[Rfam]
RNA sequence: GCAGCAAUGUGUGCAUAGUUGUCAUCUGUGUCUGGUAGCUAGUCUGUUUGCGUUUUGCAUCCAGACUUUGCUAUCCACACGUACCCUGCGGCCAAAGAUGAACCUGGGAUCAUAGUACUGGUCUAGUGAAGUCUUUGGGACAAAUCUUGCACUGGCCAGCCUCCAAACUCCCAGACAUUC
Numbered sequence: 001g002c003a004g005c006a007a008u009g010u011g012u013g014c015a016u017a018g019u020u021g022u023c024a025u026c027u028g029u030g031u032c033u034g035g036u037a038g039c040u041a042g043u044c045u046g047u048u049u050g051c052g053u054u055u056u057g058c059a060u061c062c063a064g065a066c067u068u069u070g071c072u073a074u075c076c077a078c079a080c081g082u083a084c085c086c087u088g089c090g091g092c093c094a095a096a097g098a099u100g101a102a103c104c105u106g107g108g109a110u111c112a113u114a115g116u117a118c119u120g121g122u123c124u125a126g127u128g129a130a131g132u133c134u135u136u137g138g139g140a141c142a143a144a145u146c147u148u149g150c151a152c153u154g155g156c157c158a159g160c161c162u163c164c165a166a167a168c169u170c171c172c173a174g175a176c177a178u179u180c
Base pairs, nucleotide, nucleotide: 013089014088015087029081030080031079033077034076035075036073037072038071039070041068042066043065044064045063046062049059050058051057105173106172107171108170109169118159119158120157121156122155123154125153126152127151128150131141132140133139
Rfam assigns this 180-nucleotide RNA sequence from Ornithorhynchus anatinus to the family "Small nucleolar RNA SNORA23". Rfam describes the family as follows. The members of this family belong to the H/ACA class of snoRNAs which are thought to guide the sites of modification of uridines to pseudouridines. This family includes human snoRNA ACA23 (SNORA23) and mouse snoMBI-1. ACA23 is predicted to guide the pseudouridylation of residue U3737 and U4331 of 28S rRNA. Taxonomically the source falls in Ornithorhynchus (Eukaryota, Deuterostomia, Sarcopterygii, Mammalia). Gene Ontology terms of the family: nucleolus and RNA processing.